Background: Rfam assigns this 122-nucleotide RNA sequence from Priestia koreensis to the family "SAM riboswitch aptamer (S box leader)".

RNA sequence: CUCUUAUCCAGAGUGGCGGAGGGACUGGCCCUGUGAAGCCCGGCAACCAUCAGAUCAGCGUAAACUGAUUUGAACGGUGCUAAUUCCUGUAGAACAAAGGUAUUUGUUCUCACAGAUGAGAG
Numbered sequence: 001c002u003c004u005u006a007u008c009c010a011g012a013g014u015g016g017c018g019g020a021g022g023g024a025c026u027g028g029c030c031c032u033g034u035g036a037a038g039c040c041c042g043g044c045a046a047c048c049a050u051c052a053g054a055u056c057a058g059c060g061u062a063a064a065c066u067g068a069u070u071u072g073a074a075c076g077g078u079g080c081u082a083a084u085u086c087c088u089g090u091a092g093a094a095c096a097a098a099g100g101u102a103u104u105u106g107u108u109c110u111c112a113c114a115g116a117u118g119a120g121a122g
Stems, first nucleotide, its partner, number of pairs: 001122008013041001015040003021031003025089001027087002042081004047077002050072001052070001085114001091110007